[Rfam]
This 176-nucleotide RNA sequence from Streptomyces pristinaespiralis belongs to the Rfam family "c-di-AMP riboswitch aptamer (ydaO/yuaA leader)".
About the family: This family represents a conserved RNA structure found upstream of the ydaO and yuaA genes in Bacillus subtilis and related genes in other bacteria. The ydaO/yuaA element is thought to act as a genetic 'off' switch for the ydaO and yuaA genes in its native state. It is believed that the element may be triggered during osmotic shock leading to activation of ydaO, a predicted amino acid transporter gene, and members of the yuaA-yubG operon which code for KtrA and KtrB K+ transporters.
NCBI's taxonomy places the organism under Bacteria, Actinomycetota, Actinomycetes, Streptomycetaceae, Streptomyces pristinaespiralis.
Rfam links the family to the GO terms regulation of gene expression and cyclic-di-AMP binding.
The match comes from Rfam's covariance-model search (65 bits).

RNA sequence: AUCCUGCCGCCGCCCGGAAUUCGAACCUAUCCACGCGUGGCAGGAGCGGGGGACCCAGGUAGUACGCCGCAUCCGGACAAUCCGGGCGGCUUGGGGUGAAGUCGCACCACGUGUGCGACCGGGCAUCUCCAGCCCGAACCCGACAGCUCACCUCGUAGGCGCCGGAGAGGAAUGCG
Numbered sequence: 001a002u003c004c005u006g007c008c009g010c011c012g013c014c015c016g017g018a019a020u021u022c023g024a025a026c027c028u029a030u031c032c033a034c035g036c037g038u039g040g041c042a043g044g045a046g047c048g049g050g051g052g053a054c055c056c057a058g059g060u061a062g063u064a065c066g067c068c069g070c071a072u073c074c075g076g077a078c079a080a081u082c083c084g085g086g087c088g089g090c091u092u093g094g095g096g097u098g099a100a101g102u103c104g105c106a107c108c109a110c111g112u113g114u115g116c117g118a119c120c121g122g123g124c125a126u127c128u129c130c131a132g133c134c135c136g137a138a139c140c141c142g143a144c145a146g147c148u149c150a151c152c153u154c155g156u157a158g159g160c161g162c163c164g165g166a167g168a169g170g171a172a173u174g175c176g
Base pairs, nucleotide, nucleotide: 002045003044004043005042006041007040008039009038010037046156047155048154049153050152051151056093057092058091059090060089094141095140096139102118103117104116105115121135122134123133124132